[Rfam]
This 30-nucleotide RNA sequence from Natronobacterium lacisalsi belongs to the Rfam family "CRISPR RNA direct repeat element". The family has 4 seed sequences and 2,265 matches in Rfam 15.1. A search with the family's covariance model found it, with a score of 38 bits. Lineage of the source: Archaea > Halobacteria > Natrialbaceae > Natronobacterium > Natronobacterium lacisalsi.
RNA sequence: GUUUCAGACGAACCCUUGUGGGAUUGAAAU
Numbered sequence: 001g002u003u004u005c006a007g008a009c010g011a012a013c014c015c016u017u018g019u020g021g022g023a024u025u026g027a028a029a030u
Stems, first nucleotide, its partner, number of pairs: 011025002014022002